[Rfam]
RNA sequence: AGUGAAGGUAGAGGUGCGAGCUUCAAGAGUAAAGGCCCGGAGAAGGAUGAGCUUCAACGAUGGGCUUUGAAAGGGAAUGUUCGCCGAAGUAGGGAAACACUCAUUAUUUUCCUUGCUGGUUCGUCAUUGAAAAAAUGCCGGAUUGUCAAGACCGUUGUCUUGGAGCGCUAUCUUUCAU
Number, nucleotide and partner (000 for none) at each position: 001a000002g000003u000004g000005a000006a173007g172008g171009u170010a169011g168012a000013g000014g000015u000016g084017c083018g082019a081020g080021c079022u077023u076024c075025a000026a000027g000028a000029g000030u000031a000032a068033a067034g066035g065036c064037c063038c062039g061040g000041a000042g000043a000044a000045g000046g000047a000048u000049g000050a000051g000052c000053u000054u000055c000056a000057a000058c000059g000060a000061u039062g038063g037064g036065c035066u034067u033068u032069g000070a000071a000072a000073g000074g000075g024076a023077a022078u000079g021080u020081u019082c018083g017084c016085c000086g000087a000088a117089g116090u115091a114092g113093g112094g111095a110096a109097a108098c000099a000100c000101u000102c000103a000104u000105u000106a000107u000108u097109u096110u095111c094112c093113u092114u091115g090116c089117u088118g144119g143120u142121u141122c140123g139124u000125c137126a136127u135128u134129g000130a000131a000132a000133a000134a128135a127136u126137g125138c000139c123140g122141g121142a120143u119144u118145g000146u163147c162148a161149a160150g159151a158152c157153c000154g000155u000156u000157g152158u151159c150160u149161u148162g147163g146164a000165g000166c000167g000168c011169u010170a009171u008172c007173u006174u000175u000176c000177a000178u000
The record is a 178-nucleotide RNA from Neobacillus rhizophilus, which matches "Lysine riboswitch aptamer" in Rfam. A reference for the family is Grundy et al. (2003), "The L box regulon: Lysine sensing by leader RNAs of bacterial lysine biosynthesis genes", Proc Natl Acad Sci U S A.